[Rfam]
RNA sequence: CCGCACUAGGUGGGGCGCUAGCGGUGCCCUGUCACCUGCAAUCCGCUAUAGCAGGACUGAUGCCGUCCCCCGGGAAGUAAUUUCAAGGUCUGGCGGCCAUUAAGUAGUGAUGACAGCUGGGUCCAACGCAAUAUGUCCCUGUGAACCUUGUCAGGUCCGGAAGGAAGCAGCAAUAAGCAGGUCCACAUAUGUGCCGUCGGAGUGCCUGGCUCGAGCCGGCUGAUGGCUUGCCGCUUGGGAGCGUUUCUCAAAGGUCGGCGUGCGG
Numbered sequence: 001c002c003g004c005a006c007u008a009g010g011u012g013g014g015g016c017g018c019u020a021g022c023g024g025u026g027c028c029c030u031g032u033c034a035c036c037u038g039c040a041a042u043c044c045g046c047u048a049u050a051g052c053a054g055g056a057c058u059g060a061u062g063c064c065g066u067c068c069c070c071c072g073g074g075a076a077g078u079a080a081u082u083u084c085a086a087g088g089u090c091u092g093g094c095g096g097c098c099a100u101u102a103a104g105u106a107g108u109g110a111u112g113a114c115a116g117c118u119g120g121g122u123c124c125a126a127c128g129c130a131a132u133a134u135g136u137c138c139c140u141g142u143g144a145a146c147c148u149u150g151u152c153a154g155g156u157c158c159g160g161a162a163g164g165a166a167g168c169a170g171c172a173a174u175a176a177g178c179a180g181g182u183c184c185a186c187a188u189a190u191g192u193g194c195c196g197u198c199g200g201a202g203u204g205c206c207u208g209g210c211u212c213g214a215g216c217c218g219g220c221u222g223a224u225g226g227c228u229u230g231c232c233g234c235u236u237g238g239g240a241g242c243g244u245u246u247c248u249c250a251a252a253g254g255u256c257g258g259c260g261u262g263c264g265g
Stems, first nucleotide, its partner, number of pairs: 001265006009058003012030008035055005063258003067254002072249005078243001081240007091230002096227006104220002107216002115211008123200002126197003129191002132189005138181005148173004156165003

This 265-nucleotide RNA from Peptococcus niger belongs to the Rfam family "Bacterial large signal recognition particle RNA". The literature on the family includes a 2003 paper in Nucleic Acids Res by Rosenblad et al., "SRPDB: Signal Recognition Particle Database". A search with the family's covariance model found it, with a score of 190 bits. The base pairs follow the family's consensus structure, which is taken from published work. Gene Ontology terms of the family: signal recognition particle, plasma membrane targeting and SRP-dependent cotranslational protein targeting to membrane, signal sequence recognition.